[Rfam]
RNA sequence: GCGUAGAGCCGAGCGCCGGACCCCCAGGGGCAUGAUGGGGGUGACGAGGAGAGGGAUCUCGAAAUUUCGGCGGGUGACCUCCGGCUUCCCAGCAGCCGUUAAAUCACGGACAAAGGUAGUCCGCAAGGGCGACACAAAACCGUGCGGCUGGGACCG
Numbered sequence: 001g002c003g004u005a006g007a008g009c010c011g012a013g014c015g016c017c018g019g020a021c022c023c024c025c026a027g028g029g030g031c032a033u034g035a036u037g038g039g040g041g042u043g044a045c046g047a048g049g050a051g052a053g054g055g056a057u058c059u060c061g062a063a064a065u066u067u068c069g070g071c072g073g074g075u076g077a078c079c080u081c082c083g084g085c086u087u088c089c090c091a092g093c094a095g096c097c098g099u100u101a102a103a104u105c106a107c108g109g110a111c112a113a114a115g116g117u118a119g120u121c122c123g124c125a126a127g128g129g130c131g132a133c134a135c136a137a138a139a140c141c142g143u144g145c146g147g148c149u150g151g152g153a154c155c156g
Stems, first nucleotide, its partner, number of pairs: 020042007029033001051081004059070004082098005105144005117132001119130004
glmS glucosamine-6-phosphate activated ribozyme aptamer: a 156-nucleotide RNA from Sulfobacillus harzensis. By type it is a riboswitch. Taxonomically the source falls in Sulfobacillus (Bacteria, Bacillati, Bacillota, Eubacteriales). The family's consensus secondary structure is taken from published work. This entry contains a glucosamine-6-phosphate activated ribozyme that is found in the mRNA for GlmS. GlmS is an enzyme that uses fructose-6-phosphate and glutamine to generate glucosamine-6-phosphate. The ribozyme catalyses self cleavage of the glmS mRNA that is thought to regulate GlmS activity.